This 63-nucleotide sequence from Mus spicilegus belongs to the Rfam family "U7 small nuclear RNA". Rfam describes the family as follows. Animal histone pre-mRNAs are spliced by a different mechanism than nuclear pre-mRNAs and self-splicing introns. The family has 49 seed sequences and 10,439 matches in Rfam 15.1. The family's consensus secondary structure was predicted with PFOLD. Taxonomically the source falls in Mus (Eukaryota, Dipnotetrapodomorpha, Theria, Murinae).
RNA sequence: UAUUAUCAUUCUUCUUUUGGAAUUUGUCUGGCAGGCUUUCUGACUUUGGUCUGGAAAAUCCAA
Dot-bracket structure: .................................((.((((((((....))).))))).))...